[Rfam]
RNA sequence: AGGAUAAUGCAAUGUAAGUCGCUUUGAAUAAAAGCGUCUGCCAAAUGCCUAUGU
Number, nucleotide and partner (000 for none) at each position: 001a000002g000003g000004a000005u000006a000007a000008u000009g000010c000011a000012a000013u043014g041015u040016a039017a000018g000019u000020c036021g035022c034023u033024u032025u031026g000027a000028a000029u000030a000031a025032a024033a023034g022035c021036g020037u000038c000039u016040g015041c014042c000043a013044a000045a000046u000047g000048c000049c000050u000051a000052u000053g000054u000